[Rfam]
RNA: MIR2593 microRNA precursor family
RNA sequence: AUAUAAGAAAAAUUCAUUUUUUAGGUUCAUUCAUUUAAUGAUGUAUGUGGUCCAUAUUAUGAACCACAGACAUCAUUAAAUGAAUGAACCUAAAAAGAGAAUUUUGCUUAUAU
Numbered sequence: 001a002u003a004u005a006a007g008a009a010a011a012a013u014u015c016a017u018u019u020u021u022u023a024g025g026u027u028c029a030u031u032c033a034u035u036u037a038a039u040g041a042u043g044u045a046u047g048u049g050g051u052c053c054a055u056a057u058u059a060u061g062a063a064c065c066a067c068a069g070a071c072a073u074c075a076u077u078a079a080a081u082g083a084a085u086g087a088a089c090c091u092a093a094a095a096a097g098a099g100a101a102u103u104u105u106g107c108u109u110a111u112a113u
Stems, first nucleotide, its partner, number of pairs: 002112006009105005015099001017097008026088018048066004